[Rfam]
RNA sequence: AUAACACGUGCUGUGGUUGAAAGUCGAUGCCAGUCGCAGGCGAAGCGAUCCACGUAAGGGCUCGAAGCGGGUCCGAUCAUAGUGCGGCCUAGAAGUAAGACCUGCCGCGAAAAGCGAGAGAACCGGUAGUGGGGGACAAAAGUCUAUGAGCGAAAGUUCCAGCAGGCGAGUGUGGGGGUAAAAACCAGGUCAGGCGUGUUAG
Numbered sequence: 001a002u003a004a005c006a007c008g009u010g011c012u013g014u015g016g017u018u019g020a021a022a023g024u025c026g027a028u029g030c031c032a033g034u035c036g037c038a039g040g041c042g043a044a045g046c047g048a049u050c051c052a053c054g055u056a057a058g059g060g061c062u063c064g065a066a067g068c069g070g071g072u073c074c075g076a077u078c079a080u081a082g083u084g085c086g087g088c089c090u091a092g093a094a095g096u097a098a099g100a101c102c103u104g105c106c107g108c109g110a111a112a113a114g115c116g117a118g119a120g121a122a123c124c125g126g127u128a129g130u131g132g133g134g135g136a137c138a139a140a141a142g143u144c145u146a147u148g149a150g151c152g153a154a155a156g157u158u159c160c161a162g163c164a165g166g167c168g169a170g171u172g173u174g175g176g177g178g179u180a181a182a183a184a185c186c187a188g189g190u191c192a193g194g195c196g197u198g199u200u201a202g
Stems, first nucleotide, its partner, number of pairs: 002201008011193003014187005027173003030040001033088006049082001054077001058073002061070002080180001101166005106116003120159004129151002135144003
RNA: raiA RNA